[Rfam]
RNA sequence: UGGUGCCCAACAUGGGGCUGGAUACUGAGGGCAUCUCAUGAGGGAGAUGACGGAAAAAGGAAGGAGUGCACUCGUUCAAUUUUGAGUAGUUCAGAGACGUGCCACGGGAGCGUGCCGCAACCGAACCAAAGGUAAGUUGUGCCGUCCGAUCAUGGGGCAAGAAUUGAGAGAGCAUCAGAUUUAUGUCAAGCAAUUGAGAGAGGCUCUAAAGAAAUGAGAAGUAAAGGUUAGGACUGUGGAUUUAUUUAAUUUCUUUGAUUUUGUAAAGGACAUUUGUCCCU
Numbered sequence: 001u002g003g004u005g006c007c008c009a010a011c012a013u014g015g016g017g018c019u020g021g022a023u024a025c026u027g028a029g030g031g032c033a034u035c036u037c038a039u040g041a042g043g044g045a046g047a048u049g050a051c052g053g054a055a056a057a058a059g060g061a062a063g064g065a066g067u068g069c070a071c072u073c074g075u076u077c078a079a080u081u082u083u084g085a086g087u088a089g090u091u092c093a094g095a096g097a098c099g100u101g102c103c104a105c106g107g108g109a110g111c112g113u114g115c116c117g118c119a120a121c122c123g124a125a126c127c128a129a130a131g132g133u134a135a136g137u138u139g140u141g142c143c144g145u146c147c148g149a150u151c152a153u154g155g156g157g158c159a160a161g162a163a164u165u166g167a168g169a170g171a172g173c174a175u176c177a178g179a180u181u182u183a184u185g186u187c188a189a190g191c192a193a194u195u196g197a198g199a200g201a202g203g204c205u206c207u208a209a210a211g212a213a214a215u216g217a218g219a220a221g222u223a224a225a226g227g228u229u230a231g232g233a234c235u236g237u238g239g240a241u242u243u244a245u246u247u248a249a250u251u252u253c254u255u256u257g258a259u260u261u262u263g264u265a266a267a268g269g270a271c272a273u274u275u276g277u278c279c280c281u
Base pairs, nucleotide, nucleotide: 006031007030008029012026013024014023036050037049038048039047086133087132090129091128098123099122105117106116107115140159141158142157145156146155147154148153165208166207168204215257216256217255218254220252221251225243226242227241228240229239266281268279269278270277271276
Rfam assigns this 281-nucleotide RNA sequence from Nannospalax galili to the family "Mason-Pfizer monkey virus packaging signal". The base pairs follow the family's consensus structure, which was predicted with PFOLD. The family has 9 seed sequences and 2,921 matches in Rfam 15.1. This family represents a group of sequences that are related to the Mason-Pfizer monkey virus (MPMV) packaging signal. The packaging signal is located in the 5' UTR and is required for specific RNA encapsidation. It scores 158 bits against the family's covariance model.